RNA sequence: CUUCCGCUCUUCCCGCACAGAAGAGCGGAGUGAGGCGCCCGACGCUCUCUGCCCUGACCGCGUCGGAGCCUCUCGGCCGCACGGGAACCGCACACCCGACGGCCGGAACAGCUCCGGGCUGCGGUGCCGAGAGGGUUGAGGGUCCCUCUCAGGUGC
Numbered sequence: 001c002u003u004c005c006g007c008u009c010u011u012c013c014c015g016c017a018c019a020g021a022a023g024a025g026c027g028g029a030g031u032g033a034g035g036c037g038c039c040c041g042a043c044g045c046u047c048u049c050u051g052c053c054c055u056g057a058c059c060g061c062g063u064c065g066g067a068g069c070c071u072c073u074c075g076g077c078c079g080c081a082c083g084g085g086a087a088c089c090g091c092a093c094a095c096c097c098g099a100c101g102g103c104c105g106g107a108a109c110a111g112c113u114c115c116g117g118g119c120u121g122c123g124g125u126g127c128c129g130a131g132a133g134g135g136u137u138g139a140g141g142g143u144c145c146c147u148c149u150c151a152g153g154u155g156c
Stems, first nucleotide, its partner, number of pairs: 003029004008024005032072005039066004044061002046057002073106007083097003111125003115121002129150007
This 156-nucleotide sequence from Streptomyces boluensis belongs to the Rfam family "Streptomyces sRNA scr5239". On this family, see Vockenhuber et al., PLoS One 2015: "Identification of metE as a second target of the sRNA scr5239 in Streptomyces coelicolor". The base pairs follow the family's consensus structure, which is taken from published work.